Shown here is a 137-nucleotide RNA sequence from Marininema mesophilum, a member of the family "c-di-AMP riboswitch aptamer (ydaO/yuaA leader)".
The organism belongs to Marininema, within Bacteria.
RNA sequence: UCCAUUCAACCGCCGAAUCUGAAGAGAAUGGGGGACCCGAGAUCUAGGGGUGAAUUCUGCGUUAUCAUGCAGAUAGGGAUGAACUCUUCCGUUACCCGAACCCGUCAGCUAACCCCGUAGGCGUUGGUAGAGGAGUG
Numbered sequence: 001u002c003c004a005u006u007c008a009a010c011c012g013c014c015g016a017a018u019c020u021g022a023a024g025a026g027a028a029u030g031g032g033g034g035a036c037c038c039g040a041g042a043u044c045u046a047g048g049g050g051u052g053a054a055u056u057c058u059g060c061g062u063u064a065u066c067a068u069g070c071a072g073a074u075a076g077g078g079a080u081g082a083a084c085u086c087u088u089c090c091g092u093u094a095c096c097c098g099a100a101c102c103c104g105u106c107a108g109c110u111a112a113c114c115c116c117g118u119a120g121g122c123g124u125u126g127g128u129a130g131a132g133g134a135g136u137g
Stems, first nucleotide, its partner, number of pairs: 011123004018027003028118006038047001048103003056073004076097003